A member of the RNA family "MIR7486 microRNA precursor family" from Gossypium raimondii, 87 nucleotides long. It scores 99 bits against the family's covariance model. Gene Ontology terms of the family: miRNA-mediated post-transcriptional gene silencing and RISC complex. Taxonomically the source falls in Gossypium (Eukaryota, Magnoliopsida, Mesangiospermae, rosids).

RNA sequence: CAUGUCAGCGCGCUUUGCUGAUGUGGCAGCAAAUCGCGUCCUAGAGGGCGCGAUUUGCUGCCACGUCAGUAAAGUGCGCUGACAUGG
Numbered sequence: 001c002a003u004g005u006c007a008g009c010g011c012g013c014u015u016u017g018c019u020g021a022u023g024u025g026g027c028a029g030c031a032a033a034u035c036g037c038g039u040c041c042u043a044g045a046g047g048g049c050g051c052g053a054u055u056u057g058c059u060g061c062c063a064c065g066u067c068a069g070u071a072a073a074g075u076g077c078g079c080u081g082a083c084a085u086g087g
Base pairs, nucleotide, nucleotide: 001086002085003084004083005082006081007080008079009078010077011076012075013074014073015072016071017070018069019068020067021066023064024063025062026061027060028059029058030057031056032055033054034053035052036051037050038049040047041046